Shown here is an 89-nucleotide RNA from Solobacterium moorei, a member of the family "TPP riboswitch aptamer (THI element)". The source organism's lineage runs through Bacteria, Bacillota, Erysipelotrichia, Erysipelotrichales and Solobacterium moorei.

RNA sequence: ACUCGUGAACAGGGGUGCAUGCAUGCUGAGAAAAACCCUUAUCACCUGAUCUAGGUAAAGCUAGCGUAGGGAGUUCAGUUUUUUAAUUC
Numbered sequence: 001a002c003u004c005g006u007g008a009a010c011a012g013g014g015g016u017g018c019a020u021g022c023a024u025g026c027u028g029a030g031a032a033a034a035a036c037c038c039u040u041a042u043c044a045c046c047u048g049a050u051c052u053a054g055g056u057a058a059a060g061c062u063a064g065c066g067u068a069g070g071g072a073g074u075u076c077a078g079u080u081u082u083u084u085a086a087u088u089c
Base pairs, nucleotide, nucleotide: 006077007076008075009074010073011039012038013037014036016033017026018025019024045070046069047068048067051064052063053062054061